[Rfam]
Overview:
Rfam assigns this 272-nucleotide RNA sequence from Mesomycoplasma bovoculi to the family "Bacterial RNase P class B". The literature on the family includes a 1998 paper in Annu Rev Biochem by Frank and Pace, "Ribonuclease P: unity and diversity in a tRNA processing ribozyme".

RNA sequence: UGCAUAAGUCAAUCGCUGCCAGAAGGUAGAGGAAAGUCCGCGCUAGCACUAUCUGAGAUGAUAGUAAUGUUCAUGUUGAAUCUAAUAAAUUCAAGCCCAGACGACUAGUGCCACAGAGACGAGCUUAUUAAAUUAAGGUGAAACGCGGUAAACUCCAUGAGCUAGAAACCCAAAUUUUUGGUAGGGGAGCUCAACCUAGGAAUUCAACAAUGGUUGAGAAGCAAUAUUUGCUUAGAUAAAUGGUUGACUAAUACAGAACGCGGCUUAUUAAU
Numbered sequence: 001u002g003c004a005u006a007a008g009u010c011a012a013u014c015g016c017u018g019c020c021a022g023a024a025g026g027u028a029g030a031g032g033a034a035a036g037u038c039c040g041c042g043c044u045a046g047c048a049c050u051a052u053c054u055g056a057g058a059u060g061a062u063a064g065u066a067a068u069g070u071u072c073a074u075g076u077u078g079a080a081u082c083u084a085a086u087a088a089a090u091u092c093a094a095g096c097c098c099a100g101a102c103g104a105c106u107a108g109u110g111c112c113a114c115a116g117a118g119a120c121g122a123g124c125u126u127a128u129u130a131a132a133u134u135a136a137g138g139u140g141a142a143a144c145g146c147g148g149u150a151a152a153c154u155c156c157a158u159g160a161g162c163u164a165g166a167a168a169c170c171c172a173a174a175u176u177u178u179u180g181g182u183a184g185g186g187g188a189g190c191u192c193a194a195c196c197u198a199g200g201a202a203u204u205c206a207a208c209a210a211u212g213g214u215u216g217a218g219a220a221g222c223a224a225u226a227u228u229u230g231c232u233u234a235g236a237u238a239a240a241u242g243g244u245u246g247a248c249u250a251a252u253a254c255a256g257a258a259c260g261c262g263g264c265u266u267a268u269u270a271a272u
Base pairs, nucleotide, nucleotide: 004272005271007268008248009247010246011245012244013243014242016029017028018027019026020025034266035265036264038263039262040261041260042259043165044164045163046162047161048065049064050063051062052061053060071160072159073158074157075156076094077093078092079091080090081089095102096100103155104154108153109152110149111148112147124137125136126135127134169186170185171184190218191217192216193215194214195213196212219233220232221231222230223229224228

The organism belongs to Mesomycoplasma bovoculi, within Bacteria.